The record is a 132-nucleotide RNA from Laticauda laticaudata, which matches "Small nucleolar RNA SNORA3/SNORA45 family" in Rfam.
Its Rfam clan is "SNORA3 clan".
About the family: The members of this family belong to the H/ACA class of snoRNAs which are thought to guide the sites of modification of uridines to pseudouridines. This family includes mouse snoMBI-28 and human homologues ACA3 (SNORA3) and ACA3-2 (SNORA45). Both ACA3 and ACA3-2 share the same host gene. MBI-28, ACA3 and ACA3-2 are all predicted to guide the pseudouridylation of residues in 28S rRNA.
RNA sequence: ACCGAGACUAGAGUCACAUCUAGAUGCCAUCAGUCAUCAUGGUGUGCUAUAGUCCUCGAAGAAUAAUAACUGACCUUUAUUCACCGACUCUGUGAUUCAUCAGCAGAGUCAGCUGCCAGGUUGGUAACAGAU
Numbered sequence: 001a002c003c004g005a006g007a008c009u010a011g012a013g014u015c016a017c018a019u020c021u022a023g024a025u026g027c028c029a030u031c032a033g034u035c036a037u038c039a040u041g042g043u044g045u046g047c048u049a050u051a052g053u054c055c056u057c058g059a060a061g062a063a064u065a066a067u068a069a070c071u072g073a074c075c076u077u078u079a080u081u082c083a084c085c086g087a088c089u090c091u092g093u094g095a096u097u098c099a100u101c102a103g104c105a106g107a108g109u110c111a112g113c114u115g116c117c118a119g120g121u122u123g124g125u126a127a128c129a130g131a132u
Base pairs, nucleotide, nucleotide: 003058004057005056006055007053008052009051012048013047015046016045017044018043019042020041023038024037025036026035070124071123072122073121074120075119076118084112086110087109089107090106091105092104093103
The family's RNA type in Rfam is H/ACA-box small nucleolar RNA. The base pairs follow the family's consensus structure, which was predicted with RNAalifold. On this family, see Huttenhofer et al., EMBO J 2001: "RNomics: an experimental approach that identifies 201 candidates for novel, small, non-messenger RNAs in mouse". Taxonomically the source falls in Laticauda (Eukaryota, Bilateria, Lepidosauria, Elapidae).